[Rfam]
RNA sequence: GGUGGCUCACACCGGUGCUUCGGACAGCGGUUCGAUUCCGCUCAGCUCCACUGCUCGAUCCAGGGCUUGCGAUCGCCUCGCCGUAGGCGACGUUCUUCCUGGGGCUGCAAUGGUUUCGACGGGGCAAAAGGAGGGUGACUGAAGCCUGCUCGGUAAGAGCAAACCCGUAACAGCGAACAACAUCGUUCGUUUCUCCCGUCAAGCCGCCCCUGGGGCUGCCUGA
Number, nucleotide and partner (000 for none) at each position: 001g140002g139003u138004g000005g136006c000007u000008c000009a000010c000011a000012c000013c000014g000015g000016u126017g125018c124019u000020u122021c121022g120023g000024a000025c000026a042027g041028c040029g039030g038031u000032u000033c000034g000035a000036u000037u000038c030039c029040g028041c027042u026043c107044a106045g105046c104047u103048c102049c101050a000051c000052u000053g000054c000055u000056c000057g000058a000059u000060c000061c000062a000063g000064g000065g000066c000067u000068u000069g000070c000071g000072a000073u000074c000075g000076c000077c000078u000079c000080g000081c000082c000083g000084u000085a000086g000087g000088c000089g000090a000091c000092g000093u000094u000095c000096u000097u000098c000099c000100u000101g049102g048103g047104g046105c045106u044107g043108c000109a000110a000111u000112g000113g000114u000115u000116u000117c000118g000119a000120c022121g021122g020123g000124g018125c017126a016127a000128a000129a000130g000131g000132a000133g000134g000135g000136u005137g000138a003139c002140u001141g000142a000143a000144g000145c000146c000147u000148g000149c000150u000151c000152g000153g000154u000155a000156a000157g000158a000159g000160c000161a000162a000163a000164c000165c000166c000167g000168u000169a000170a000171c000172a000173g000174c000175g000176a000177a000178c000179a000180a000181c000182a000183u000184c000185g000186u000187u000188c000189g000190u000191u000192u000193c000194u000195c000196c000197c000198g000199u000200c000201a000202a000203g000204c000205c000206g000207c000208c000209c000210c000211u000212g000213g000214g000215g000216c000217u000218g000219c000220c000221u000222g000223a000
Rfam assigns this 223-nucleotide RNA sequence from an uncultured cyanobacterium to the family "permuted transfer-messenger RNA".
It is annotated as a non-coding RNA gene.
It is one of the family's seed sequences.
Pairs were carried over by alignment from the consensus structure, which is taken from published work.
Rfam's curators write: Bacterial tmRNA, also known as 10Sa RNA or SsrA, is named for its dual tRNA and mRNA-like properties.